RNA sequence: UCCCAAUGAAGAAACAUUUCACACGUCUUACUUCCUGUCCGAGUCCCAGAGCCCGUAAAGUUGAACCCACUGAGGCUGGCUGGGGGAGAAGAGGAGAACUUGUUCCAGAAAGAACUGUCUGAGGGAU
Numbered sequence: 001u002c003c004c005a006a007u008g009a010a011g012a013a014a015c016a017u018u019u020c021a022c023a024c025g026u027c028u029u030a031c032u033u034c035c036u037g038u039c040c041g042a043g044u045c046c047c048a049g050a051g052c053c054c055g056u057a058a059a060g061u062u063g064a065a066c067c068c069a070c071u072g073a074g075g076c077u078g079g080c081u082g083g084g085g086g087a088g089a090a091g092a093g094g095a096g097a098a099c100u101u102g103u104u105c106c107a108g109a110a111a112g113a114a115c116u117g118u119c120u121g122a123g124g125g126a127u
Base pairs, nucleotide, nucleotide: 001126002125003124004123

Source information:
This 127-nucleotide RNA sequence from Ictidomys tridecemlineatus belongs to the Rfam family "Small nucleolar RNA SNORD22". The literature on the family includes a 1994 paper in Science by Tycowski et al., "Requirement for intron-encoded U22 small nucleolar RNA in 18S ribosomal RNA maturation". Its family is annotated with nucleolus and RNA processing in the Gene Ontology. The organism belongs to Ictidomys, within Eukaryota.